The family of this 95-nucleotide RNA sequence from Sphingobium subterraneum is "Bacterial small signal recognition particle RNA". Its Rfam clan is "SRP clan". The family's consensus secondary structure is taken from published work.
RNA sequence: CCGGGAGUCGGGCGGACGUGGUCGUCGCCAACCUGGUCAGAUCCUGACGGAAGCAGCCACAACGAUUUUGCCGCGGGUCGUUCGGCUCCCACCGC
Numbered sequence: 001c002c003g004g005g006a007g008u009c010g011g012g013c014g015g016a017c018g019u020g021g022u023c024g025u026c027g028c029c030a031a032c033c034u035g036g037u038c039a040g041a042u043c044c045u046g047a048c049g050g051a052a053g054c055a056g057c058c059a060c061a062a063c064g065a066u067u068u069u070g071c072c073g074c075g076g077g078u079c080g081u082u083c084g085g086c087u088c089c090c091a092c093c094g095c
Stems, first nucleotide, its partner, number of pairs: 004089011017075006024066004034059004042051003